[Rfam]
RNA sequence: AACCAUACUAUUAAUGAAUGGAUUCACCCUUGAGAUAACGUGGUUGUUCUAUCUUGAAUAAGGACGUGAUAUCCUAUUAAUUUCGUGCGAUGGUUGGUAAUAGGAUGCCAUAUCCUUGUCCUAAGUGAAACAACCAUGUCAUCUCGCGGGUGAAUCCAUUCAUUGAUAGUGUGGUU
Numbered sequence: 001a002a003c004c005a006u007a008c009u010a011u012u013a014a015u016g017a018a019u020g021g022a023u024u025c026a027c028c029c030u031u032g033a034g035a036u037a038a039c040g041u042g043g044u045u046g047u048u049c050u051a052u053c054u055u056g057a058a059u060a061a062g063g064a065c066g067u068g069a070u071a072u073c074c075u076a077u078u079a080a081u082u083u084c085g086u087g088c089g090a091u092g093g094u095u096g097g098u099a100a101u102a103g104g105a106u107g108c109c110a111u112a113u114c115c116u117u118g119u120c121c122u123a124a125g126u127g128a129a130a131c132a133a134c135c136a137u138g139u140c141a142u143c144u145c146g147c148g149g150g151u152g153a154a155u156c157c158a159u160u161c162a163u164u165g166a167u168a169g170u171g172u173g174g175u176u
Stems, first nucleotide, its partner, number of pairs: 001176007009168007017160003021156008031146003035142002038139002041136008051126002054123001058119001063114002070107010086097001
Dot-bracket structure: (((((((.(((((((.(((.((((((((..(((.((.((.((((((((..((.(...(....((.....((((((((((......(..........))))))))))).....))....)...).))..)))))))).)).)).)))..)))))))).))).))))))).)))))))